[Rfam]
RNA: U11 spliceosomal RNA
RNA sequence: AAAAAGGGUCGGUUGGCUAAAUAUGCCACGCUCGCCCUCGUUAGGCGAGUGCUGUAUGGCUAUCAAGACAUAUGGCUGACAUAAUUUGUGGAAACUUCAUGGGUUGGCCCGCUUUGGCCGAUCCACCA
Numbered sequence: 001a002a003a004a005a006g007g008g009u010c011g012g013u014u015g016g017c018u019a020a021a022u023a024u025g026c027c028a029c030g031c032u033c034g035c036c037c038u039c040g041u042u043a044g045g046c047g048a049g050u051g052c053u054g055u056a057u058g059g060c061u062a063u064c065a066a067g068a069c070a071u072a073u074g075g076c077u078g079a080c081a082u083a084a085u086u087u088g089u090g091g092a093a094a095c096u097u098c099a100u101g102g103g104u105u106g107g108c109c110c111g112c113u114u115u116g117g118c119c120g121a122u123c124c125a126c127c128a
Stems, first nucleotide, its partner, number of pairs: 008080005014028004029051008052075007100125008109117003